[Rfam]
RNA sequence: ACCAUCCUUUUCUUGGGGUUGUGCUAUUGUGCAAUGAGCAUGUAGUGAGGACAGUACCGCUAACACCUAAACACACUUGCAUCAACUAGAGCUCUGCUUUUCCUUGGUGUAAUUUUUUUGGGGAA
Numbered sequence: 001a002c003c004a005u006c007c008u009u010u011u012c013u014u015g016g017g018g019u020u021g022u023g024c025u026a027u028u029g030u031g032c033a034a035u036g037a038g039c040a041u042g043u044a045g046u047g048a049g050g051a052c053a054g055u056a057c058c059g060c061u062a063a064c065a066c067c068u069a070a071a072c073a074c075a076c077u078u079g080c081a082u083c084a085a086c087u088a089g090a091g092c093u094c095u096g097c098u099u100u101u102c103c104u105u106g107g108u109g110u111a112a113u114u115u116u117u118u119u120g121g122g123g124a125a
Base pairs, nucleotide, nucleotide: 006018007017008016009015021060022059023058026055027054028053029052030051032049038046039045079110080109081108082107083106084105088100089099090098091097092096
A member of the RNA family "U4atac minor spliceosomal RNA" from Molossus molossus, 125 nucleotides long. U4atac is an essential component of the minor U12-type spliceosome complex which is required for removal of the rarer class of eukaryotic introns (AT-AC, U12-type). Taxonomically the source falls in Molossus (Eukaryota, Deuterostomia, Gnathostomata, Sarcopterygii). The match comes from Rfam's covariance-model search (85 bits). The literature on the family includes a 2005 paper in RNA by Lorkovic et al., "Evolutionary conservation of minor U12-type spliceosome between plants and humans".